RNA sequence: UAUCGCCAGACCGAGUAGGCUCGCCCGAAAGCCGUGCAGAAAGAGGAAGGAAGGCGCGACCAUCGGCCACACGGCCGUGAAUAUGCACCCCGCGCAGAAGGGCGGACGCUUCUUGCAUGGUCGGACUCUCCGGCGUUCGGUCCGAUUUCAUGCCCUUUCUGCAAGCGGCUGCGGAGCGCCAUUGCUAGCCGUGCGGGGUGCCCGACUUGAAUUCUGACGAG
Number, nucleotide and partner (000 for none) at each position: 001u000002a000003u000004c000005g037006c036007c000008a000009g000010a000011c000012c000013g000014a000015g000016u000017a000018g000019g025020c000021u000022c000023g000024c000025c019026c000027g000028a000029a000030a000031g000032c000033c000034g000035u000036g006037c005038a000039g000040a000041a000042a000043g000044a000045g000046g000047a000048a000049g000050g000051a000052a000053g000054g000055c000056g000057c000058g000059a000060c000061c000062a000063u000064c077065g076066g075067c074068c000069a000070c000071a000072c000073g000074g067075c066076c065077g064078u000079g000080a000081a000082u000083a000084u000085g201086c200087a199088c198089c197090c196091c195092g194093c193094g162095c161096a160097g159098a158099a156100g155101g154102g153103c152104g000105g000106a000107c000108g116109c115110u000111u000112c000113u000114u000115g109116c108117a000118u000119g147120g146121u145122c144123g143124g142125a141126c140127u139128c000129u000130c000131c000132g000133g000134c000135g000136u000137u000138c000139g127140g126141u125142c124143c123144g122145a121146u120147u119148u000149c000150a000151u000152g103153c102154c101155c100156u099157u000158u098159c097160u096161g095162c094163a000164a000165g192166c191167g190168g189169c188170u000171g000172c000173g182174g000175a000176g000177c000178g000179c000180c000181a000182u173183u000184g000185c000186u000187a000188g169189c168190c167191g166192u165193g093194c092195g091196g090197g089198g088199u087200g086201c085202c000203c000204g000205a000206c000207u000208u000209g000210a000211a000212u000213u000214c000215u000216g000217a000218c000219g000220a000221g000
Source information:
The record is a 221-nucleotide RNA from Collinsella intestinalis, which matches "RT-2 RNA" in Rfam. Rfam's curators put it in the seed alignment.